[Rfam]
RNA sequence: GUCACGCGAACGGCAACGGUUACUGAUGAGUACCCUCAUCCUCUGGCCUACCUUAAUGACGGGAUAGUUAUUUGGGCUGUUUGCGGGUUCCGUCAGUGCCUCGUUUUUAGAAGCGAUGCAACGUCCGGGCUCGACACUGCGCUACCUACGCAGGACGACCGCCGAACACGGGUUUCGUGAUCGCUGUUCUGUGAGUUAUCCGGAGCGAUCCGGCCAGUG
Numbered sequence: 001g002u003c004a005c006g007c008g009a010a011c012g013g014c015a016a017c018g019g020u021u022a023c024u025g026a027u028g029a030g031u032a033c034c035c036u037c038a039u040c041c042u043c044u045g046g047c048c049u050a051c052c053u054u055a056a057u058g059a060c061g062g063g064a065u066a067g068u069u070a071u072u073u074g075g076g077c078u079g080u081u082u083g084c085g086g087g088u089u090c091c092g093u094c095a096g097u098g099c100c101u102c103g104u105u106u107u108u109a110g111a112a113g114c115g116a117u118g119c120a121a122c123g124u125c126c127g128g129g130c131u132c133g134a135c136a137c138u139g140c141g142c143u144a145c146c147u148a149c150g151c152a153g154g155a156c157g158a159c160c161g162c163c164g165a166a167c168a169c170g171g172g173u174u175u176c177g178u179g180a181u182c183g184c185u186g187u188u189c190u191g192u193g194a195g196u197u198a199u200c201c202g203g204a205g206c207g208a209u210c211c212g213g214c215c216a217g218u219g
Base pairs, nucleotide, nucleotide: 018048019047020046021045022044025040026039027038028037029036030035051076052075053074055072056071057070058069059068060067085132086131087130088129090128091127092126096122097121098119101116102115103114104113105112151191152190153189154188155187156186158185163183164182165181167179168178169177170176200213201212202211203210204209
Source information: Shown here is a 219-nucleotide RNA sequence, a member of the family "ilvB-OMG RNA". The base pairs follow the family's consensus structure, which is taken from published work.